Overview:
Shown here is a 30-nucleotide RNA from Natronomonas pharaonis, a member of the family "CRISPR RNA direct repeat element". Gene Ontology term of the family: defense response. The source organism's lineage runs through Archaea, Methanobacteriati, Natronomonadaceae, Natronomonas and Natronomonas pharaonis.
RNA sequence: GUUUCAGACGAACCCUUGUGGGGUUGAAGC
Numbered sequence: 001g002u003u004u005c006a007g008a009c010g011a012a013c014c015c016u017u018g019u020g021g022g023g024u025u026g027a028a029g030c
Stems, first nucleotide, its partner, number of pairs: 011025005